[Rfam]
RNA sequence: CGGUCAGACAACUGUUUUGCUUAUAUAUCCUCUGAAAUAAGGUCAGAAAGUCUCUACCGGAUCACCGUAAACGAUCCGACUAUAAGAAAAACAUUUAUAUAU
Numbered sequence: 001c002g003g004u005c006a007g008a009c010a011a012c013u014g015u016u017u018u019g020c021u022u023a024u025a026u027a028u029c030c031u032c033u034g035a036a037a038u039a040a041g042g043u044c045a046g047a048a049a050g051u052c053u054c055u056a057c058c059g060g061a062u063c064a065c066c067g068u069a070a071a072c073g074a075u076c077c078g079a080c081u082a083u084a085a086g087a088a089a090a091a092c093a094u095u096u097a098u099a100u101a102u
Base pairs, nucleotide, nucleotide: 018088020086021085022084023083024082025081031047032046033045034044035043058078059077060076061075062074063073
This 102-nucleotide RNA sequence from Anaerotruncus sp. CAG:390 belongs to the Rfam family "Purine riboswitch aptamer".